Shown here is a 59-nucleotide RNA sequence, a member of the family "nhaA-I RNA". The family's consensus secondary structure is taken from published work. The sequence is in the family's curated seed alignment. By type it is a riboswitch.
[Rfam]
RNA sequence: GGGUCUGGAGAUCUUUCUCCGGAGGUGCCAUUUUUUUAAGGUGGUCGGGCCGCCAUCUG
Dot-bracket structure: ....(((((((....)))))))................(((.(((......))).))).
Numbered sequence: 001g002g003g004u005c006u007g008g009a010g011a012u013c014u015u016u017c018u019c020c021g022g023a024g025g026u027g028c029c030a031u032u033u034u035u036u037u038a039a040g041g042u043g044g045u046c047g048g049g050c051c052g053c054c055a056u057c058u059g
Stems, first nucleotide, its partner, number of pairs: 005022007039058003043054003